[Rfam]
RNA sequence: UAAUUUGUAUAGGGAAGAUCCUCAUCUAGUUGUGGCGUAUCCAUAUUUGACUAUUCAAAAUCAUUUGUUAUCACAAGCUCGACUAUAUUAAUAAGUAAUUAUUGUUUUAUUUGUCCAAGAAAAAC
Numbered sequence: 001u002a003a004u005u006u007g008u009a010u011a012g013g014g015a016a017g018a019u020c021c022u023c024a025u026c027u028a029g030u031u032g033u034g035g036c037g038u039a040u041c042c043a044u045a046u047u048u049g050a051c052u053a054u055u056c057a058a059a060a061u062c063a064u065u066u067g068u069u070a071u072c073a074c075a076a077g078c079u080c081g082a083c084u085a086u087a088u089u090a091a092u093a094a095g096u097a098a099u100u101a102u103u104g105u106u107u108u109a110u111u112u113g114u115c116c117a118a119g120a121a122a123a124a125c
Base pairs, nucleotide, nucleotide: 005124006123008120012116014114018110019109024105025104027101028100029099030098031097
RNA: MIR480 microRNA precursor family